[Rfam]
RNA sequence: AGGAAUUAAUGCUCUUUAAUAUUUAUCCAGAAGGAUCCCUAGUGAAAGGGGAUCCUCC
Numbered sequence: 001a002g003g004a005a006u007u008a009a010u011g012c013u014c015u016u017u018a019a020u021a022u023u024u025a026u027c028c029a030g031a032a033g034g035a036u037c038c039c040u041a042g043u044g045a046a047a048g049g050g051g052a053u054c055c056u057c058c
Stems, first nucleotide, its partner, number of pairs: 033055008